Shown here is a 205-nucleotide RNA from Pantoea sp. Eser, a member of the family "GlmZ RNA activator of glmS mRNA".
The base pairs follow the family's consensus structure, which is taken from published work.
A search with the family's covariance model found it, with a score of 114 bits.
Rfam classes the family as a small RNA.
The literature on the family includes a 2001 paper in Curr Biol by Argaman et al., "Novel small RNA-encoding genes in the intergenic regions of Escherichia coli".
Lineage of the source: Bacteria > Pseudomonadati > Pseudomonadota > Gammaproteobacteria > Pantoea.
From the family's description: This RNA was discovered in E. coli during a large scale screen. The sraJ gene was expressed in early logarithmic phase, but its level decreased with cell growth. Specific cleavage products of this RNA were found. Identified in Yersinia pseudotuberculosis as Ysr248/153/sR016.

RNA sequence: GUAGAUGCUAAUUCCACCUCCACCUCUUAUGUUUGCUGAUGCAACAUAAACUUGGGAAUGAUGCAGAGCCAAUUCUAGGGUACCUGUUGUCUGUCUGCCUGUAUCGCGAAAGUCUUAGAGGGUUAACAGACACCACGUUGAGUCAGGUUCCUCCCGGUUGUCUUACCGACCUGAUCUUACACCUGCCAAUGGCAGGUGUUUUUUU
Dot-bracket structure: ((...((((.((..(.(.......(..(....(.......)..)...)......)).)).).)))..)).........((.((((...(((((........((............)).........))))).............)))).))........(((.....)))........(((((((((...)))))))))......